[Rfam]
RNA sequence: AAAAGUGCUCUACUAUGAGAACUGAAUUCCAUAGAUGGUGGCAUCUUCAUGUGUCAUCUAUGGGCUCAGUUCUUUUGGCAUGGUACUAAUC
Numbered sequence: 001a002a003a004a005g006u007g008c009u010c011u012a013c014u015a016u017g018a019g020a021a022c023u024g025a026a027u028u029c030c031a032u033a034g035a036u037g038g039u040g041g042c043a044u045c046u047u048c049a050u051g052u053g054u055c056a057u058c059u060a061u062g063g064g065c066u067c068a069g070u071u072c073u074u075u076u077g078g079c080a081u082g083g084u085a086c087u088a089a090u091c
Stems, first nucleotide, its partner, number of pairs: 008082001013077001018073008033059004
RNA: mir-146 microRNA precursor family
Organism: Mastacembelus armatus